[Rfam]
Shown here is a 128-nucleotide RNA sequence from Thalassobacillus cyri, a member of the family "Ribosomal protein L20 leader". It is annotated as a cis-regulatory leader. This family is a putative r-protein leader autoregulatory structure found in B. subtilis and other low-GC Gram-positive bacteria. It is located in the 5' untranslated regions of mRNAs encoding initiation factor 3 followed by ribosomal proteins L35 and L20 (infC-rpmI-rplT). A Rho-independent transcription terminator structure that is probably involved in regulation is included at the 3' end. The base pairs follow the family's consensus structure, which was predicted with CMfinder.
RNA sequence: UGAGACAAGUAGAAGCACCCGCUUCUCACCUGAUCGACGCGUAAAGCAGUUGGCAGGUCAUUAAUCCUUUUGAAUUCGAAUGGGAUACGUGUGGGUGCAUCGUGAUGUGCCGACACUUUUUUUAUUGG
Numbered sequence: 001u002g003a004g005a006c007a008a009g010u011a012g013a014a015g016c017a018c019c020c021g022c023u024u025c026u027c028a029c030c031u032g033a034u035c036g037a038c039g040c041g042u043a044a045a046g047c048a049g050u051u052g053g054c055a056g057g058u059c060a061u062u063a064a065u066c067c068u069u070u071u072g073a074a075u076u077c078g079a080a081u082g083g084g085a086u087a088c089g090u091g092u093g094g095g096u097g098c099a100u101c102g103u104g105a106u107g108u109g110c111c112g113a114c115a116c117u118u119u120u121u122u123u124a125u126u127g128g
Base pairs, nucleotide, nucleotide: 011026012025013024014023015022016021028058029057030056036051037050038049039047040046090115091114092113094111095110096109097108098107099106